[Rfam]
RNA sequence: AAGGGUACCCUCCGACCCUCCUAGGUUCAACUAAAUGAACUAAAUUUUCAGAAUUCAUAUCAUUUUUGAAAAUGUAGUUCAUUUGGUUGAACUAAGGAGGGCCGGAGGGUACCCUA
Number, nucleotide and partner (000 for none) at each position: 001a000002a115003g114004g113005g112006u111007a110008c109009c108010c107011u106012c105013c104014g103015a000016c101017c100018c099019u098020c097021c096022u095023a000024g093025g092026u091027u090028c089029a088030a087031c086032u085033a084034a083035a082036u081037g080038a079039a078040c077041u076042a075043a000044a000045u000046u000047u000048u000049c000050a000051g000052a000053a000054u000055u000056c000057a000058u000059a000060u000061c000062a000063u000064u000065u000066u000067u000068g000069a000070a000071a000072a000073u000074g000075u042076a041077g040078u039079u038080c037081a036082u035083u034084u033085g032086g031087u030088u029089g028090a027091a026092c025093u024094a000095a022096g021097g020098a019099g018100g017101g016102c000103c014104g013105g012106a011107g010108g009109g008110u007111a006112c005113c004114c003115u002116a000
The family of this 116-nucleotide sequence from Aegilops tauschii is "MIR5070 microRNA precursor family". The family's consensus secondary structure was predicted with RNAalifold. The family has 2 seed sequences and 266 matches in Rfam 15.1. NCBI's taxonomy places the organism under Eukaryota, Spermatophyta, Magnoliopsida, Triticinae, Aegilops tauschii. A search with the family's covariance model found it, with a score of 103 bits. The family is grouped with related families in Rfam's "MIR2863 microRNA precursor clan".